[Rfam]
RNA: tRNA
Organism: Bacteroidales bacterium
RNA sequence: GGGACGUUAGCUCAGUUGGUUUAGAGCGCUUGCUUGACAGGCAAGAGGUCACUGGUUCGAUUCCAGUACGCCCCA
Numbered sequence: 001g002g003g004a005c006g007u008u009a010g011c012u013c014a015g016u017u018g019g020u021u022u023a024g025a026g027c028g029c030u031u032g033c034u035u036g037a038c039a040g041g042c043a044a045g046a047g048g049u050c051a052c053u054g055g056u057u058c059g060a061u062u063c064c065a066g067u068a069c070g071c072c073c074c075a
Stems, first nucleotide, its partner, number of pairs: 001074003005070003010027004029045005051067005